[Rfam]
Shown here is a 67-nucleotide RNA from Chitinophaga niabensis, a member of the family "Fluoride riboswitch aptamer (crcB RNA motif)". The base pairs follow the family's consensus structure, which is taken from published work.

RNA sequence: CCUCAAACAGGAAAUGGUGUCUUCCUGACCCAACCGCUUCUCCGAAGCUAAUGGCGCCUACAAAUUA
Numbered sequence: 001c002c003u004c005a006a007a008c009a010g011g012a013a014a015u016g017g018u019g020u021c022u023u024c025c026u027g028a029c030c031c032a033a034c035c036g037c038u039u040c041u042c043c044g045a046a047g048c049u050a051a052u053g054g055c056g057c058c059u060a061c062a063a064a065u066u067a
Base pairs, nucleotide, nucleotide: 010025011024012023013022016058017057018056019055020054021053036048037047038046039045